[Rfam]
RNA: MIR1507 microRNA precursor family
RNA sequence: CCUUGUUUGGUAGAGGUGUUUGGAGCGAGAGAUGAAAAAGGGUUUUUUUUCGCUACAACACUUUUCUCUCCCUCGUUCCAUACAUCAUCUAACGAACAUUGU
Numbered sequence: 001c002c003u004u005g006u007u008u009g010g011u012a013g014a015g016g017u018g019u020u021u022g023g024a025g026c027g028a029g030a031g032a033u034g035a036a037a038a039a040g041g042g043u044u045u046u047u048u049u050u051c052g053c054u055a056c057a058a059c060a061c062u063u064u065u066c067u068c069u070c071c072c073u074c075g076u077u078c079c080a081u082a083c084a085u086c087a088u089c090u091a092a093c094g095a096a097c098a099u100u101g102u
Stems, first nucleotide, its partner, number of pairs: 005097005011091004015086005021080009031070002034068002037065002050055001